The record is an 83-nucleotide RNA sequence from Polypterus senegalus, which matches "mir-221 microRNA precursor family" in Rfam. Gene Ontology terms of the family: RISC complex and miRNA-mediated post-transcriptional gene silencing. The literature on the family includes a 2008 paper in J Virol by Yao et al., "MicroRNA profile of Marek's disease virus-transformed T-cell line MSB-1: predominance of virus-encoded microRNAs". It scores 78 bits against the family's covariance model.
RNA sequence: CCCAUGAGGUGCUCAGUAGUCAGUGUAGAUUCUGUAAUAUUAAUCAGCAGCUACAUCUGGCUACUGGGUCUCUUAUGGCAUUU
Dot-bracket structure: ............((((((.(((((((((...((((...........)))))))))).))).))))))................